[Rfam]
RNA: U7 small nuclear RNA
RNA sequence: AGCUGUUACAGCUCUCUGGCAAUUUUUUCUAACAGGUUUUCUGUCUUCUGUCAGGAAACCCAA
Numbered sequence: 001a002g003c004u005g006u007u008a009c010a011g012c013u014c015u016c017u018g019g020c021a022a023u024u025u026u027u028u029c030u031a032a033c034a035g036g037u038u039u040u041c042u043g044u045c046u047u048c049u050g051u052c053a054g055g056a057a058a059c060c061c062a063a
Base pairs, nucleotide, nucleotide: 035060036059037058038057039056040055041054042053043052045050